[Rfam]
Shown here is a 135-nucleotide RNA sequence from Anabarilius grahami, a member of the family "Small nucleolar RNA SNORA75".

RNA sequence: UGCUUCUCAUGAGCUCCUCUCUGUCAGUUCAGUGGCGGUGUAUGGAUUCGCAAGAGAAGUAGAUUCAAAUUCACACUUAAACAGGUGUUUCCAGAUGAUAUAUUGGAACAUACCCAUGUCUGAUGUGAGACAUUU
Numbered sequence: 001u002g003c004u005u006c007u008c009a010u011g012a013g014c015u016c017c018u019c020u021c022u023g024u025c026a027g028u029u030c031a032g033u034g035g036c037g038g039u040g041u042a043u044g045g046a047u048u049c050g051c052a053a054g055a056g057a058a059g060u061a062g063a064u065u066c067a068a069a070u071u072c073a074c075a076c077u078u079a080a081a082c083a084g085g086u087g088u089u090u091c092c093a094g095a096u097g098a099u100a101u102a103u104u105g106g107a108a109c110a111u112a113c114c115c116a117u118g119u120c121u122g123a124u125g126u127g128a129g130a131c132a133u134u135u
Base pairs, nucleotide, nucleotide: 003059004058005057006056007055008054013051014050015046016045017044021038022037023036024035025034071128072127073126074125075124089108090107091106092105093104094103
The base pairs follow the family's consensus structure, which was predicted with PFOLD. From the family's description: U23 belongs to the H/ACA class of snoRNAs. snoRNAs bind a number of proteins (including dyskerin, Gar1p and Nop10p in the case of the H/ACA class) to form snoRNP complexes. This class are thought to guide the sites of modification of uridines to pseudouridines by forming direct base pairing interactions with substrate RNAs.